Description:
A member of the RNA family "ssNA-helicase RNA", 49 nucleotides long. By type it is a small RNA. Rfam's curators put it in the seed alignment.
[Rfam]
RNA sequence: GUCCAUAAGGGUUAGUAUUACCCUUAUGGAAGCACAUGUAGCAGUAGCA
Numbered sequence: 001g002u003c004c005a006u007a008a009g010g011g012u013u014a015g016u017a018u019u020a021c022c023c024u025u026a027u028g029g030a031a032g033c034a035c036a037u038g039u040a041g042c043a044g045u046a047g048c049a
Stems, first nucleotide, its partner, number of pairs: 002030010